Shown here is a 466-nucleotide sequence from Athelia sp. TMB, a member of the family "Nuclear RNase P". Rfam's curators write: Ribonuclease P (RNase P) is a ubiquitous endoribonuclease, found in archaea, bacteria and eukarya as well as chloroplasts and mitochondria. On this family, see Marquez et al., RNA 2005: "Structural implications of novel diversity in eucaryal RNase P RNA". Rfam 15.1 lists 3,848 matches to the family in 1,862 species. NCBI's taxonomy places the organism under Eukaryota, Agaricomycotina, Agaricomycetes, Atheliaceae, Athelia.

RNA sequence: ACAGUGCCAAAGCCGCGAGGCUCACUACAUACAGGAUCGCGCCAGCGUCCCCUUUCGUGAGCGGGCUAAGGUCUGAGCGUUCCAGUCCCCCUUGAUCGACUCUCGCAGGGUCCAGCGUUAAUCGCGCUGAGCAGCACACCAGAAAUAUAGCACACAGUUUCAUUCAUCCUAAGAUUCUUUUCACCGAGGGGAGGACGAGACUGUGCGGCGUUGGGAUAUGCUGUGGGGACCGUGCACAUGCAUUGCUGGGGCUGCAUAACAACCUAUCACUGGAAUCUGUGCCGUUGAGGCGUCUGGUCUAUGCACUUGGCUGGCGUCGCUGACGCAAGCGCGACGCCGCAGUCCGGCCCUUUGACUGGGUCCAGCAUGAGGGCUUCAUGCAUCCCGGUACAUCUGUUCUUCAGUUCACUUCGUGGCUCGUGGUCUCUUGGCCAGCGAAACUCGAUUCAGACUACUCUGGUCCUGU
Numbered sequence: 001a002c003a004g005u006g007c008c009a010a011a012g013c014c015g016c017g018a019g020g021c022u023c024a025c026u027a028c029a030u031a032c033a034g035g036a037u038c039g040c041g042c043c044a045g046c047g048u049c050c051c052c053u054u055u056c057g058u059g060a061g062c063g064g065g066c067u068a069a070g071g072u073c074u075g076a077g078c079g080u081u082c083c084a085g086u087c088c089c090c091c092u093u094g095a096u097c098g099a100c101u102c103u104c105g106c107a108g109g110g111u112c113c114a115g116c117g118u119u120a121a122u123c124g125c126g127c128u129g130a131g132c133a134g135c136a137c138a139c140c141a142g143a144a145a146u147a148u149a150g151c152a153c154a155c156a157g158u159u160u161c162a163u164u165c166a167u168c169c170u171a172a173g174a175u176u177c178u179u180u181u182c183a184c185c186g187a188g189g190g191g192a193g194g195a196c197g198a199g200a201c202u203g204u205g206c207g208g209c210g211u212u213g214g215g216a217u218a219u220g221c222u223g224u225g226g227g228g229a230c231c232g233u234g235c236a237c238a239u240g241c242a243u244u245g246c247u248g249g250g251g252c253u254g255c256a257u258a259a260c261a262a263c264c265u266a267u268c269a270c271u272g273g274a275a276u277c278u279g280u281g282c283c284g285u286u287g288a289g290g291c292g293u294c295u296g297g298u299c300u301a302u303g304c305a306c307u308u309g310g311c312u313g314g315c316g317u318c319g320c321u322g323a324c325g326c327a328a329g330c331g332c333g334a335c336g337c338c339g340c341a342g343u344c345c346g347g348c349c350c351u352u353u354g355a356c357u358g359g360g361u362c363c364a365g366c367a368u369g370a371g372g373g374c375u376u377c378a379u380g381c382a383u384c385c386c387g388g389u390a391c392a393u394c395u396g397u398u399c400u401u402c403a404g405u406u407c408a409c410u411u412c413g414u415g416g417c418u419c420g421u422g423g424u425c426u427c428u429u430g431g432c433c434a435g436c437g438a439a440a441c442u443c444g445a446u447u448c449a450g451a452c453u454a455c456u457c458u459g460g461u462c463c464u465g466u
Stems, first nucleotide, its partner, number of pairs: 001466004007460003012417007020062005034050004073450005079230004098112005113129006131224006151210001153208001418438003421434004